RNA: Small nucleolar RNA snR63
RNA sequence: AUACAUGAUGAUAGAUUUUUAACCAUCGUCAGCCUAUUAAGAACAGAAUGUGCUCGCAAGGCGCAUUUCUAAGACUAUCCCAUGUCUGACAUGUCUGCUCUGUCUUGGACUUGGAGUAAAAACCGUUUUGGUGUUUAUUCCUCAUAGCCCGAGCUGAGUGGAAUUGGACGUCUUUUAAUGUGAUGAGUGGCUGGCAACUUAUAGUCAUAGUUACACUGAGU
Dot-bracket structure: ....(((((.((.(.(....).).)).(((((((.(((....(((((((((...........))))))..(((((.....((((.....))))...(.((...(((((.(.(((((((((.(((.....))).))))))))..)..).)))))............)).))))))....)))....))))))))))........))))).............